Shown here is a 47-nucleotide sequence from Aphis craccivora, a member of the family "Histone 3' UTR stem-loop".
On this family, see Williams and Marzluff, Nucleic Acids Res 1995: "The sequence of the stem and flanking sequences at the 3' end of histone mRNA are critical determinants for the binding of the stem-loop binding protein".
Lineage of the source: Eukaryota > Mandibulata > Altocrustacea > Aphis > Aphis.
From the family's description: The mRNAs of metazoan histone genes lack a poly-A tail. 3' end processing occurs at a site between a highly conserved stem-loop (modelled by this family) and a purine rich region around 20 nts downstream (the histone downstream element, or HDE). The stem-loop is bound by a 31 kDa stem-loop binding protein (SLBP - also termed the histone hairpin binding protein, or HBP). Together with U7 snRNA binding of the HDE, SLBP binding nucleate s the formation of the processing complex. The histone 3' UTR stem-loop is also involved in nucleocytoplasmic transport of the mRNA, and in stability regulation and translation efficiency in the cytoplasm.
The base pairs follow the family's consensus structure, which is taken from published work.
RNA sequence: AAAACGGCCCUUUUCAGGGCCACCACAAAUAUUAAAUUUUGUUGUUU
Numbered sequence: 001a002a003a004a005c006g007g008c009c010c011u012u013u014u015c016a017g018g019g020c021c022a023c024c025a026c027a028a029a030u031a032u033u034a035a036a037u038u039u040u041g042u043u044g045u046u047u
Stems, first nucleotide, its partner, number of pairs: 006021006
Dot-bracket structure: .....((((((....))))))..........................